[Rfam]
RNA sequence: AAUAAGCAUUUAAUGUUCGCUGACAGAGUACCGAACGAACACAGUCCUGUUUAUCAAAACGGAUGAUGCCGAUCAUCUCAUCCUCAGUAAAACGCUCCAGUGCAUCGCUGAGACCCGAUUUCACGCCUCUAGGCAGAUCGCAUUGGGUAAUAUCACCAUUAACGAUGACCGUGACAUUUUCACCGAGGCGGGUC
Numbered sequence: 001a002a003u004a005a006g007c008a009u010u011u012a013a014u015g016u017u018c019g020c021u022g023a024c025a026g027a028g029u030a031c032c033g034a035a036c037g038a039a040c041a042c043a044g045u046c047c048u049g050u051u052u053a054u055c056a057a058a059a060c061g062g063a064u065g066a067u068g069c070c071g072a073u074c075a076u077c078u079c080a081u082c083c084u085c086a087g088u089a090a091a092a093c094g095c096u097c098c099a100g101u102g103c104a105u106c107g108c109u110g111a112g113a114c115c116c117g118a119u120u121u122c123a124c125g126c127c128u129c130u131a132g133g134c135a136g137a138u139c140g141c142a143u144u145g146g147g148u149a150a151u152a153u154c155a156c157c158a159u160u161a162a163c164g165a166u167g168a169c170c171g172u173g174a175c176a177u178u179u180u181c182a183c184c185g186a187g188g189c190g191g192g193u194c
Base pairs, nucleotide, nucleotide: 002054003053004052005051006050007049008048014041015040016039017038018037019036061078062077063076064075065074066073067072083112084111085110086109087108088107093102094101095100113193114192115191116190117189119188120187121186122185125134126133127132137166138165139164140163144158145157146156171183172182173181174180

Shown here is a 194-nucleotide RNA sequence from Yersinia pestis, a member of the family "Yersinia sRNA 251". Lineage of the source: Bacteria > Pseudomonadota > Gammaproteobacteria > Yersinia > Yersinia pestis.